[Rfam]
RNA sequence: CCAAGCAGCCGUGAGCUGUGCAGACAGACUCACCGCCGGGACGGGGUCACACUGCUGGGAGAGGAACGUCCUGCCUCCUUCCUCCAGGUGCCUCUGCCACUGUCCUGGUGGCAUCUGGUGCUGGUGCAAGGCAGGACUGUGCUUCCUUGAGAGUGUGCUAGGCAUUCGCUUUGGCUGCUUAGUUCUAGAAUGGGAGAAGGCACU
Numbered sequence: 001c002c003a004a005g006c007a008g009c010c011g012u013g014a015g016c017u018g019u020g021c022a023g024a025c026a027g028a029c030u031c032a033c034c035g036c037c038g039g040g041a042c043g044g045g046g047u048c049a050c051a052c053u054g055c056u057g058g059g060a061g062a063g064g065a066a067c068g069u070c071c072u073g074c075c076u077c078c079u080u081c082c083u084c085c086a087g088g089u090g091c092c093u094c095u096g097c098c099a100c101u102g103u104c105c106u107g108g109u110g111g112c113a114u115c116u117g118g119u120g121c122u123g124g125u126g127c128a129a130g131g132c133a134g135g136a137c138u139g140u141g142c143u144u145c146c147u148u149g150a151g152a153g154u155g156u157g158c159u160a161g162g163c164a165u166u167c168g169c170u171u172u173g174g175c176u177g178c179u180u181a182g183u184u185c186u187a188g189a190a191u192g193g194g195a196g197a198a199g200g201c202a203c204u
Base pairs, nucleotide, nucleotide: 001059002058004056005055006054007053008052011050012049016044017043018042019041021039023037025035068137069136070135071134072133073132074131075130076129083126085124088121089120090119091118092117095113096112097111098110099109100108101107140198142196143195144194145193146192155185157183159181160180161179162178163177164176
Overview:
The record is a 204-nucleotide sequence from Phyllostomus discolor, which matches "Small nucleolar RNA SNORA74" in Rfam. The base pairs follow the family's consensus structure, which was predicted with PFOLD. About the family: U19 belongs to the H/ACA class of snoRNAs. snoRNAs bind a number of proteins (including dyskerin, Gar1p and Nop10p in the case of the H/ACA class) to form snoRNP complexes. This class are thought to guide the sites of modification of uridines to pseudouridines by forming direct base pairing interactions with substrate RNAs. Targets may include ribosomal and spliceosomal RNAs but the exact functions of many snoRNAs, including U19, are not confirmed. Co-precipitation of U19 snoRNA with RNase MRP RNA suggests that U19 may be involved in pre-rRNA processing. The match comes from Rfam's covariance-model search (75 bits). The family's RNA type in Rfam is H/ACA-box small nucleolar RNA. On this family, see Ganot et al., Genes Dev 1997: "The family of box ACA small nucleolar RNAs is defined by an evolutionarily conserved secondary structure and ubiquitous sequence elements essential for RNA accumulation". Rfam 15.1 lists 1,348 matches to the family in 628 species.